[Rfam]
Shown here is a 99-nucleotide RNA from Papaver nudicaule, a member of the family "Small nucleolar RNA Z43". It is annotated as a C/D-box small nucleolar RNA. Gene Ontology terms of the family: RNA processing and nucleolus.

RNA sequence: UGACAAUGAUGAUAUGUGUGAUGGUGUCUUUCUUUGUAAUGGCUGAUUAAUCGUGGCCUUGCCGACCAGUCUGUAUAUCACCACCCAUAUUCUGAGUUU
Numbered sequence: 001u002g003a004c005a006a007u008g009a010u011g012a013u014a015u016g017u018g019u020g021a022u023g024g025u026g027u028c029u030u031u032c033u034u035u036g037u038a039a040u041g042g043c044u045g046a047u048u049a050a051u052c053g054u055g056g057c058c059u060u061g062c063c064g065a066c067c068a069g070u071c072u073g074u075a076u077a078u079c080a081c082c083a084c085c086c087a088u089a090u091u092c093u094g095a096g097u098u099u
Stems, first nucleotide, its partner, number of pairs: 002098003045060002047055001
The family has 7 seed sequences and 859 matches in Rfam 15.1.
Taxonomically the source falls in Papaver (Eukaryota, Viridiplantae, Embryophyta, Mesangiospermae).